[Rfam]
RNA sequence: ACCGUCCUUGUCUUGGGGUGAGAGAACUACUCAAUGAGCGCUUGGUUAGAGUAGUCCUGCGGACACCAGAACAACGCAUUAGCACCACCUGAACUCUUGUUCAGGUUCUGGUGCAAUUUUUAGAAAC
Numbered sequence: 001a002c003c004g005u006c007c008u009u010g011u012c013u014u015g016g017g018g019u020g021a022g023a024g025a026a027c028u029a030c031u032c033a034a035u036g037a038g039c040g041c042u043u044g045g046u047u048a049g050a051g052u053a054g055u056c057c058u059g060c061g062g063a064c065a066c067c068a069g070a071a072c073a074a075c076g077c078a079u080u081a082g083c084a085c086c087a088c089c090u091g092a093a094c095u096c097u098u099g100u101u102c103a104g105g106u107u108c109u110g111g112u113g114c115a116a117u118u119u120u121u122a123g124a125a126a127c
Stems, first nucleotide, its partner, number of pairs: 006018004020060001023058002026055007038046002082114006088105002091102004
Dot-bracket structure: .....((((.....)))).(..((.(((((((.....((.....))..))))))).)).).....................((((((((.((((....)))).))...)))))).............

Rfam assigns this 127-nucleotide RNA sequence from Betta splendens to the family "U4atac minor spliceosomal RNA". Pairs were carried over by alignment from the consensus structure, which is taken from published work. From the family's description: U4atac is an essential component of the minor U12-type spliceosome complex which is required for removal of the rarer class of eukaryotic introns (AT-AC, U12-type). Rfam classes the family as a spliceosomal small nuclear RNA. The organism belongs to Betta, within Eukaryota. The match comes from Rfam's covariance-model search (85 bits). The literature on the family includes a 2005 paper in RNA by Lorkovic et al., "Evolutionary conservation of minor U12-type spliceosome between plants and humans".